[Rfam]
RNA: antisense RNA of dnaA mRNA
RNA sequence: UUUCGCAUUGGGUUUACGCGCCACAAUUCCGUUACCCACCGCAUGUAAAAGGUGCGUUUUACCCAGGCCGGUGCCGCCAUA
Numbered sequence: 001u002u003u004c005g006c007a008u009u010g011g012g013u014u015u016a017c018g019c020g021c022c023a024c025a026a027u028u029c030c031g032u033u034a035c036c037c038a039c040c041g042c043a044u045g046u047a048a049a050a051g052g053u054g055c056g057u058u059u060u061a062c063c064c065a066g067g068c069c070g071g072u073g074c075c076g077c078c079a080u081a
Base pairs, nucleotide, nucleotide: 005042006041009038010037011036012035013034016032017031018030020029051078052077053076054075056074057073061072062071063070